Rfam assigns this 357-nucleotide part of an RNA from Thermoplasmatales archaeon I-plasma to the family "Archaeal large subunit ribosomal RNA". The source organism's lineage runs through Archaea, Methanobacteriati, Thermoplasmatota, Thermoplasmata and Thermoplasmatales. The base pairs follow the family's consensus structure, which is taken from published work.
[Rfam]
RNA sequence: UGGACAAAUCUUCGCGAGGGAACUCGGCAAACUAGCUUCGUAUCUUCGGUAGAAGGAGUGCCUAGUCCUUGAAAGACUAGGUCGCAGUGGCUAGGGGACUCCGACUGUUUAACAAAAACACAGAUCGCAGCGAGCCCGAAAGGGUGUGUAUUGCGGUUGAAGCCUGCCCAGUGGCGGUACCUGAAAACCCGGUUCAACGGGGAGAAGGGCCGCUAAACGGCGGGGGUAACUAUGACCCUCUUAAGGUAGCGUAAUACCUAGCCGCUUAAUUGGCGGCUUGCAUGAAGGUCCAACGAGGGUCCCACUGUCCCCGCGAUGAGUCCAGUGAAAUCGAUGUACUGGUGCACAAUCCAGUCU
Numbered sequence: 001u002g003g004a005c006a007a008a009u010c011u012u013c014g015c016g017a018g019g020g021a022a023c024u025c026g027g028c029a030a031a032c033u034a035g036c037u038u039c040g041u042a043u044c045u046u047c048g049g050u051a052g053a054a055g056g057a058g059u060g061c062c063u064a065g066u067c068c069u070u071g072a073a074a075g076a077c078u079a080g081g082u083c084g085c086a087g088u089g090g091c092u093a094g095g096g097g098a099c100u101c102c103g104a105c106u107g108u109u110u111a112a113c114a115a116a117a118a119c120a121c122a123g124a125u126c127g128c129a130g131c132g133a134g135c136c137c138g139a140a141a142g143g144g145u146g147u148g149u150a151u152u153g154c155g156g157u158u159g160a161a162g163c164c165u166g167c168c169c170a171g172u173g174g175c176g177g178u179a180c181c182u183g184a185a186a187a188c189c190c191g192g193u194u195c196a197a198c199g200g201g202g203a204g205a206a207g208g209g210c211c212g213c214u215a216a217a218c219g220g221c222g223g224g225g226g227u228a229a230c231u232a233u234g235a236c237c238c239u240c241u242u243a244a245g246g247u248a249g250c251g252u253a254a255u256a257c258c259u260a261g262c263c264g265c266u267u268a269a270u271u272g273g274c275g276g277c278u279u280g281c282a283u284g285a286a287g288g289u290c291c292a293a294c295g296a297g298g299g300u301c302c303c304a305c306u307g308u309c310c311c312c313g314c315g316a317u318g319a320g321u322c323c324a325g326u327g328a329a330a331u332c333g334a335u336g337u338a339c340u341g342g343u344g345c346a347c348a349a350u351c352c353a354g355u356c357u
Base pairs, nucleotide, nucleotide: 001324002323003322004321009319010318012316013315014314015313016312018310019309020308035059036058037057038056039055044049060082061081062080063079064078065077066076067075083087095303096302097301098300099299100298101297102295103294106120107119108118123158124157125156126155127154128153129152130151131148134145135144136143137142162289163288164287166221167220168219171218172217173214174213175212176211177210180209181208182207188201189200190199191198222240223239224238225237226236227235241245261277262276263275264274265273266272338355339354340353341352342351